RNA sequence: UAGAACCUUUUCUGGGGAGUGGGACAGAAAUGAUAUUUUCGCAAAAUUUAUUUCGCCGUCCCACCCCAACUUGCAUUGUCUGUAGAAAUUGGGAAUCCAAUUUCUCUUUGUUGGGGCCCCGCCCCAACUCGCAUUGCCUGUAGAAUUUCUUUUCGAAAUUCUCUGUGUUGGGGCCCCUGACUAGAAUUGAAAAAAGCUUAUUACAAGCGCAUUUUCGUUCAGUCAAUUACUGCCAAUAUAACUUCGUAGAUCAUAGAACAUUGAUUUAU
Numbered sequence: 001u002a003g004a005a006c007c008u009u010u011u012c013u014g015g016g017g018a019g020u021g022g023g024a025c026a027g028a029a030a031u032g033a034u035a036u037u038u039u040c041g042c043a044a045a046a047u048u049u050a051u052u053u054c055g056c057c058g059u060c061c062c063a064c065c066c067c068a069a070c071u072u073g074c075a076u077u078g079u080c081u082g083u084a085g086a087a088a089u090u091g092g093g094a095a096u097c098c099a100a101u102u103u104c105u106c107u108u109u110g111u112u113g114g115g116g117c118c119c120c121g122c123c124c125c126a127a128c129u130c131g132c133a134u135u136g137c138c139u140g141u142a143g144a145a146u147u148u149c150u151u152u153u154c155g156a157a158a159u160u161c162u163c164u165g166u167g168u169u170g171g172g173g174c175c176c177c178u179g180a181c182u183a184g185a186a187u188u189g190a191a192a193a194a195a196g197c198u199u200a201u202u203a204c205a206a207g208c209g210c211a212u213u214u215u216c217g218u219u220c221a222g223u224c225a226a227u228u229a230c231u232g233c234c235a236a237u238a239u240a241a242c243u244u245c246g247u248a249g250a251u252c253a254u255a256g257a258a259c260a261u262u263g264a265u266u267u268a269u
Stems, first nucleotide, its partner, number of pairs: 001014005015067003019064007027054007035047005069141002073137003077133003084105009110128008142162008164240008173231001178225005184220004189216005196208004246269008

The family of this 269-nucleotide RNA from Staphylococcus aureus is "Staphylococcus sRNA 35 (srn_0335)". It is one of the family's seed sequences. The family's consensus secondary structure was predicted with RNAfold. It is annotated as a small RNA. A reference for the family is Mader et al. (2016), "Staphylococcus aureus Transcriptome Architecture: From Laboratory to Infection-Mimicking Conditions", PLoS Genet.